[Rfam]
RNA sequence: GGAAAGAUGCCAGAGCGGUUGAAUGGGGCGGUCUCGAAAACCGUUGUAGACAAGCGUCUACCGAGGGUUCGAAUCCCUCUCUUUCCG
Numbered sequence: 001g002g003a004a005a006g007a008u009g010c011c012a013g014a015g016c017g018g019u020u021g022a023a024u025g026g027g028g029c030g031g032u033c034u035c036g037a038a039a040a041c042c043g044u045u046g047u048a049g050a051c052a053a054g055c056g057u058c059u060a061c062c063g064a065g066g067g068u069u070c071g072a073a074u075c076c077c078u079c080u081c082u083u084u085c086c087g
Stems, first nucleotide, its partner, number of pairs: 001086007010026003028044005063079005